[Rfam]
RNA: MIR7504 microRNA precursor family
Organism: Gossypium aridum
Nucleotides: 124
Stems, first nucleotide, its partner, number of pairs: 001124016018107005023101002026099002029096008039087002042084002046080004
Number, partner (000 for none) and nucleotide at each position: 001124a002123a003122u004121a005120g006119u007118u008117u009116a010115a011114u012113g013112u014111c015110a016109c017000a018107u019106c020105a021104g022103u023101a024100u025000u026099u027098u028000a029096a030095u031094u032093u033092u034091g035090a036089a037000a038000a039087u040086u041000u042084a043083g044000u045000a046080u047079u048078u049077u050000c051000a052000c053000c054000c055000u056000a057000a058000a059000a060000a061000a062000a063000a064000u065000u066000a067000a068000a069000u070000c071000c072000a073000a074000a075000u076000g077049a078048a079047a080046a081000u082000c083043c084042u085000g086040a087039a088000a089036u090035u091034c092033a093032g094031a095030a096029u097000g098027a099026a100024a101023u102000u103022a104021u105020u106019g107018a108000c109016g110015u111014g112013g113012c114011a115010u116009u117008a118007a119006a120005c121004u122003a123002u124001u